[Rfam]
RNA sequence: UUCCGAGGGGGAAAAGUUAUGACGAUUAUGACAAAUUGAACCAUAAGCGUAUAGCUUUUCCCCUUUGGCG
Numbered sequence: 001u002u003c004c005g006a007g008g009g010g011g012a013a014a015a016g017u018u019a020u021g022a023c024g025a026u027u028a029u030g031a032c033a034a035a036u037u038g039a040a041c042c043a044u045a046a047g048c049g050u051a052u053a054g055c056u057u058u059u060c061c062c063c064u065u066u067g068g069c070g
Base pairs, nucleotide, nucleotide: 003068004067005066006065007064009062010061011060013058014057017054018053019052020051021050026046027045028044029043030042
Rfam assigns this 70-nucleotide RNA from Ooceraea biroi to the family "mir-965 microRNA precursor family". The base pairs follow the family's consensus structure, which was predicted with RNAalifold. It scores 67 bits against the family's covariance model. On this family, see Huang et al., Bioorg Khim 2012: "The regulation of silkworm fibroin L chain production by miRNA-965 and miRNA-1926 in insect cells". Lineage of the source: Eukaryota > Panarthropoda > Pancrustacea > Apocrita > Ooceraea.